RNA: RNase MRP
RNA sequence: GGAUGUUCUGAAGACCUGCUCUCUAGGCCACGCACGGAGGACACCGGUUCCUCAUGGGCCCCGCGCCCGCCUAGGGGAAAGUCCCCGGACCGCAGGCAGAGAGUGCCGGGCGCUGCGCGCGCCCUGGCCCGCCCCCAUCUCACACAGUCCCCGCCGAGACGCCCCCGGGCCGAGCGGGUGAGGGCGGGGCGGGUUCUCGUCACGGUCACAGAAACGCAGGUAGUGCGCAGGCGCACUAACAGAACGGGGCUCACUCUCAGGCCAUC
Numbered sequence: 001g002g003a004u005g006u007u008c009u010g011a012a013g014a015c016c017u018g019c020u021c022u023c024u025a026g027g028c029c030a031c032g033c034a035c036g037g038a039g040g041a042c043a044c045c046g047g048u049u050c051c052u053c054a055u056g057g058g059c060c061c062c063g064c065g066c067c068c069g070c071c072u073a074g075g076g077g078a079a080a081g082u083c084c085c086c087g088g089a090c091c092g093c094a095g096g097c098a099g100a101g102a103g104u105g106c107c108g109g110g111c112g113c114u115g116c117g118c119g120c121g122c123c124c125u126g127g128c129c130c131g132c133c134c135c136c137a138u139c140u141c142a143c144a145c146a147g148u149c150c151c152c153g154c155c156g157a158g159a160c161g162c163c164c165c166c167g168g169g170c171c172g173a174g175c176g177g178g179u180g181a182g183g184g185c186g187g188g189g190c191g192g193g194u195u196c197u198c199g200u201c202a203c204g205g206u207c208a209c210a211g212a213a214a215c216g217c218a219g220g221u222a223g224u225g226c227g228c229a230g231g232c233g234c235a236c237u238a239a240c241a242g243a244a245c246g247g248g249g250c251u252c253a254c255u256c257u258c259a260g261g262c263c264a265u266c
Stems, first nucleotide, its partner, number of pairs: 002266004007261005014221006022075007037053005080251002083249004095107004108124006126194001128192001131190005140183002143180001151177004161170003223236005